[Rfam]
RNA: c-di-AMP riboswitch aptamer (ydaO/yuaA leader)
Organism: Bacillus sp. Y1
RNA sequence: AUUCUUAAAUCGCUGAAACCAUUGGUACGGGGGACCCAAAAUGUCCGGGGGUGAAUCCUUUUAUUAGGUAGGGCUACUCAUGAGGCCCGAAUCCGACAGCUAACCUCGUAAGCGUUUUUUGAGAAGGAAG
Numbered sequence: 001a002u003u004c005u006u007a008a009a010u011c012g013c014u015g016a017a018a019c020c021a022u023u024g025g026u027a028c029g030g031g032g033g034a035c036c037c038a039a040a041a042u043g044u045c046c047g048g049g050g051g052u053g054a055a056u057c058c059u060u061u062u063a064u065u066a067g068g069u070a071g072g073g074c075u076a077c078u079c080a081u082g083a084g085g086c087c088c089g090a091a092u093c094c095g096a097c098a099g100c101u102a103a104c105c106u107c108g109u110a111a112g113c114g115u116u117u118u119u120u121g122a123g124a125a126g127g128a129a130g
Stems, first nucleotide, its partner, number of pairs: 011114004018026003027109006037048001049094003057068003071088004
Dot-bracket structure: ..........((((...(((...)))((((((....(..........)(((.....(((......)))..((((..........))))...))).........)))))).))))................